[Rfam]
RNA sequence: AGAGGCCCUCUGCGGCUGGGCGCGGAAUGCUUGCCUCAUUGCCGGGGCGACAAAGCAAGCAUUUCACCAGGCCGCUCACACUGCCCGC
Numbered sequence: 001a002g003a004g005g006c007c008c009u010c011u012g013c014g015g016c017u018g019g020g021c022g023c024g025g026a027a028u029g030c031u032u033g034c035c036u037c038a039u040u041g042c043c044g045g046g047g048c049g050a051c052a053a054a055g056c057a058a059g060c061a062u063u064u065c066a067c068c069a070g071g072c073c074g075c076u077c078a079c080a081c082u083g084c085c086c087g088c
Stems, first nucleotide, its partner, number of pairs: 004085003012075006020068001022067001024065011039050004

The family of this 88-nucleotide RNA sequence from Myotis lucifugus is "mir-9195 microRNA precursor family". Taxonomically the source falls in Myotis (Eukaryota, Metazoa, Deuterostomia, Eutheria).